[Rfam]
RNA sequence: ACAGGAGACGCCGAAAACCUGAACAAAGAGUAGGCA
Number, nucleotide and partner (000 for none) at each position: 001a000002c021003a020004g019005g018006a000007g000008a000009c000010g035011c034012c033013g000014a000015a000016a000017a000018c005019c004020u003021g002022a000023a000024c000025a000026a000027a000028g000029a000030g000031u000032a000033g012034g011035c010036a000
The family of this 36-nucleotide RNA from Chryseobacterium gleum is "DUF805b RNA". The source organism's lineage runs through Bacteria, Pseudomonadati, Weeksellaceae, Chryseobacterium and Chryseobacterium gleum. The base pairs follow the family's consensus structure, which is taken from published work.